[Rfam]
RNA sequence: AGGUGAUAGCUGGAUGUAACAGCAACUCCAUGUGGAAGUUGUAUCUGUUCCAGUGGAGGUGUUGUUACCUGCAGAGAGCCA
Numbered sequence: 001a002g003g004u005g006a007u008a009g010c011u012g013g014a015u016g017u018a019a020c021a022g023c024a025a026c027u028c029c030a031u032g033u034g035g036a037a038g039u040u041g042u043a044u045c046u047g048u049u050c051c052a053g054u055g056g057a058g059g060u061g062u063u064g065u066u067a068c069c070u071g072c073a074g075a076g077a078g079c080c081a
Base pairs, nucleotide, nucleotide: 010074011073012072016068017067018066019065020064021063022062023061026058027057028056029055030054031053033052034051035050
Dot-bracket structure: .........(((...((((((((..((((((.(((..............)))))))))..))))))))...))).......
A member of the RNA family "mir-194 microRNA precursor family" from Parambassis ranga, 81 nucleotides long. A search with the family's covariance model found it, with a score of 76 bits. NCBI's taxonomy places the organism under Eukaryota, Vertebrata, Teleostomi, Teleostei, Parambassis. Gene Ontology terms of the family: RISC complex and miRNA-mediated post-transcriptional gene silencing. A reference for the family is Lagos-Quintana et al. (2003), "New microRNAs from mouse and human", RNA. The base pairs follow the family's consensus structure, which was predicted with RNAalifold.